Shown here is a 315-nucleotide RNA sequence from Firmicutes bacterium CAG:345, a member of the family "Bacterial RNase P class B". Rfam classes the family as a ribozyme. Taxonomically the source falls in Bacillota (Bacteria, Bacillati). Clan: RNaseP clan. The literature on the family includes a 1999 paper in Nucleic Acids Res by Brown, "The Ribonuclease P Database". About the family: Ribonuclease P (RNase P) is a ubiquitous endoribonuclease, found in archaea, bacteria and eukarya as well as chloroplasts and mitochondria. Its best characterised activity is the generation of mature 5'-ends of tRNAs by cleaving the 5'-leader elements of precursor-tRNAs. Cellular RNase Ps are ribonucleoproteins.
RNA sequence: CGGUCCGGAUGACAGCUAGGAAACUAGAGGAAAGUCCAUGCUCGCACUUUCUGAGAUGAAAGUAGUGUUUGUGCCAAAGGAAAAAAUAACUUUGGGCAGGGAGGAGUCCCUGACGGCGGAAGAUUUCCUGAAAUGGAAUAUUCUGUAACGCUCCACAGUGACGAAUCAGGUGGAAACAUCUGGGUGAAACGCGGAAAGCCCCUCAAGCGAGAAACCUAAAUUUUGGUAAGGGAAGUCAAAAGCGGGAAUCAAACUGCAAUUGGCAAGCUUCGGCUUAGAUAAAUUGUCGUCCUCGACAAAACAUGGCUUAUAGGA
Dot-bracket structure: ...(((((((((((.((((....))))....[[[.[[[[[(((((((((((......)))))).....(((.(((((((..........))))))(((((((....)))))).)((.((((...((((......))))..)))).....(((((............((((((....))))))..........)))..))))).))))))))...(((...........)))...(((((....................)))))((((....))))........)))))))..........]]]]]]]].).)))